Shown here is a 134-nucleotide sequence from Trichechus manatus, a member of the family "Small nucleolar RNA SNORA71". A reference for the family is Ganot et al. (1997), "The family of box ACA small nucleolar RNAs is defined by an evolutionarily conserved secondary structure and ubiquitous sequence elements essential for RNA accumulation", Genes Dev. Its family is annotated with RNA processing and nucleolus in the Gene Ontology. Rfam classes the family as an H/ACA-box small nucleolar RNA. A search with the family's covariance model found it, with a score of 136 bits. Lineage of the source: Eukaryota > Chordata > Trichechidae > Trichechus > Trichechus manatus.
[Rfam]
RNA sequence: ACCUGCAUUCAAAAGUGAUCAUGGGCUGCCUGUGCUCUGGUCAUUGAUAGUGCAGGGAGAGGAAUCGCUGAAAGAUAUUUCCCCGUGUUUGGAGGGUCCACCUUGUCCCUUCUGAACCCUGGAACUUUCACACA
Dot-bracket structure: .((((((((....((((((((.((((.......))))))))))))...))))))))..........(.((((((............((((((((((..........))))).))))).......)))))))...